[Rfam]
Background:
This 129-nucleotide RNA from Melopsittacus undulatus belongs to the Rfam family "Small Cajal body specific RNA 4". Its Rfam clan is "SCARNA4 clan". The match comes from Rfam's covariance-model search (76 bits). Lineage of the source: Eukaryota > Bilateria > Gnathostomata > Neoaves > Melopsittacus. Pairs were carried over by alignment from the consensus structure, which was predicted with RNAfold.

RNA sequence: CCUGGAGGACUGAUGGAGCUGAGUCUGAAGAGUGAGGCUCAGGGGUCAGCAGCCUCCUAAAAGAAAAGGGAUGGAGAGAGCAGUCCUGCUUACAGAAAAGCAAGGGGCUGACUGUGCCAUCUGACACUC
Numbered sequence: 001c002c003u004g005g006a007g008g009a010c011u012g013a014u015g016g017a018g019c020u021g022a023g024u025c026u027g028a029a030g031a032g033u034g035a036g037g038c039u040c041a042g043g044g045g046u047c048a049g050c051a052g053c054c055u056c057c058u059a060a061a062a063g064a065a066a067a068g069g070g071a072u073g074g075a076g077a078g079a080g081c082a083g084u085c086c087u088g089c090u091u092a093c094a095g096a097a098a099a100g101c102a103a104g105g106g107g108c109u110g111a112c113u114g115u116g117c118c119a120u121c122u123g124a125c126a127c128u129c
Stems, first nucleotide, its partner, number of pairs: 003059001004057005019042001021040006068122003079113002081110007091102001093100001